[Rfam]
RNA sequence: UGUGCCGGGGUGGGCAGGCCCUACGGCCAACUAACCCUAAUGGCGGCCGCGCCCCUCACUCUCGCCCGCUGUUUUACUCGCUGACUUUCAGCGGGCUAAGGGAGCGGCCCAGGGAAAGGGGGUGGGGGGAAAGAGUUCCGGCCUCAAAAAAAGCCAGCGAGGGGGAUCCACACCCCGGCCCACCCUGGGGUCCCUGUCCUUUUUCCACCACCGGGGAUGCUCCCGCCCUCGCCCCUCGUGGAGGCCGCGGUCGGCAGGCUCAGCGCCACUACCGCCGCGAAGAGUUCGUCUCUGUCAGCCUCGGCGGCGGCCGGGAGCGGAGGGUCGGCGCGCCCACCCUUGGCAGCCGGGGGACCCAGCAGAACAAAACGGAGGCGGCGCCGCUGGGGCGCUGGGCAGCCGCGCCCCCUAAGACGUGGGGUGUGCGGUUCGGCGCCGCCCCGACACCC
Numbered sequence: 001u002g003u004g005c006c007g008g009g010g011u012g013g014g015c016a017g018g019c020c021c022u023a024c025g026g027c028c029a030a031c032u033a034a035c036c037c038u039a040a041u042g043g044c045g046g047c048c049g050c051g052c053c054c055c056u057c058a059c060u061c062u063c064g065c066c067c068g069c070u071g072u073u074u075u076a077c078u079c080g081c082u083g084a085c086u087u088u089c090a091g092c093g094g095g096c097u098a099a100g101g102g103a104g105c106g107g108c109c110c111a112g113g114g115a116a117a118g119g120g121g122g123u124g125g126g127g128g129g130a131a132a133g134a135g136u137u138c139c140g141g142c143c144u145c146a147a148a149a150a151a152a153g154c155c156a157g158c159g160a161g162g163g164g165g166a167u168c169c170a171c172a173c174c175c176c177g178g179c180c181c182a183c184c185c186u187g188g189g190g191u192c193c194c195u196g197u198c199c200u201u202u203u204u205c206c207a208c209c210a211c212c213g214g215g216g217a218u219g220c221u222c223c224c225g226c227c228c229u230c231g232c233c234c235c236u237c238g239u240g241g242a243g244g245c246c247g248c249g250g251u252c253g254g255c256a257g258g259c260u261c262a263g264c265g266c267c268a269c270u271a272c273c274g275c276c277g278c279g280a281a282g283a284g285u286u287c288g289u290c291u292c293u294g295u296c297a298g299c300c301u302c303g304g305c306g307g308c309g310g311c312c313g314g315g316a317g318c319g320g321a322g323g324g325u326c327g328g329c330g331c332g333c334c335c336a337c338c339c340u341u342g343g344c345a346g347c348c349g350g351g352g353g354a355c356c357c358a359g360c361a362g363a364a365c366a367a368a369a370c371g372g373a374g375g376c377g378g379c380g381c382c383g384c385u386g387g388g389g390c391g392c393u394g395g396g397c398a399g400c401c402g403c404g405c406c407c408c409c410u411a412a413g414a415c416g417u418g419g420g421g422u423g424u425g426c427g428g429u430u431c432g433g434c435g436c437c438g439c440c441c442c443g444a445c446a447c448c449c
Stems, first nucleotide, its partner, number of pairs: 005188011017176002019165004051105002054102002064096008080158004085153001086151003193359001196355004209327001210325003219318007229307005246279005252274003257267003281293004374440010400428005406421004
A member of the RNA family "Vertebrate telomerase RNA" from Promerops cafer, 449 nucleotides long. By type it is a non-coding RNA gene. Lineage of the source: Eukaryota > Sauropsida > Sauria > Passeroidea > Promerops. The literature on the family includes a 2000 paper in Cell by Chen et al., "Secondary structure of vertebrate telomerase RNA".